RNA: c-di-GMP-I riboswitch aptamer
Organism: Anaerobacillus isosaccharinicus
RNA sequence: CCAAUGAAACGGCAAACUUACUGAAAGGUAAGGACGCAAAGCUCCAGACCUACAGGUAGAAAUUACUAUGGUGGCUGAGUUACCAAA
Numbered sequence: 001c002c003a004a005u006g007a008a009a010c011g012g013c014a015a016a017c018u019u020a021c022u023g024a025a026a027g028g029u030a031a032g033g034a035c036g037c038a039a040a041g042c043u044c045c046a047g048a049c050c051u052a053c054a055g056g057u058a059g060a061a062a063u064u065a066c067u068a069u070g071g072u073g074g075c076u077g078a079g080u081u082a083c084c085a086a087a
Stems, first nucleotide, its partner, number of pairs: 012037002017032006040081004045077003048072003055066001058063001